[Rfam]
RNA sequence: AUGUCCGUUAGUGGAGACAGAUGCUUUCUGGACAUAUAAUGGUGCAUUUAGAGCAUCUGCCCAAGGGGCGAACUGCUUAAGCUAACCAGUCAAACUCUGAGGCCCUGUAUAAAACAUAAAUAAAAUA
Numbered sequence: 001a002u003g004u005c006c007g008u009u010a011g012u013g014g015a016g017a018c019a020g021a022u023g024c025u026u027u028c029u030g031g032a033c034a035u036a037u038a039a040u041g042g043u044g045c046a047u048u049u050a051g052a053g054c055a056u057c058u059g060c061c062c063a064a065g066g067g068g069c070g071a072a073c074u075g076c077u078u079a080a081g082c083u084a085a086c087c088a089g090u091c092a093a094a095c096u097c098u099g100a101g102g103c104c105c106u107g108u109a110u111a112a113a114a115c116a117u118a119a120a121u122a123a124a125a126u127a
Stems, first nucleotide, its partner, number of pairs: 007121003011117003020057008059103003062099002066097003072090004
Dot-bracket structure: ......(((.(((......((((((((......................)))))))).(((((..(((...((((...........))))....))))).)))...........))).)))......

Shown here is a 127-nucleotide sequence, a member of the family "Glycine riboswitch aptamer".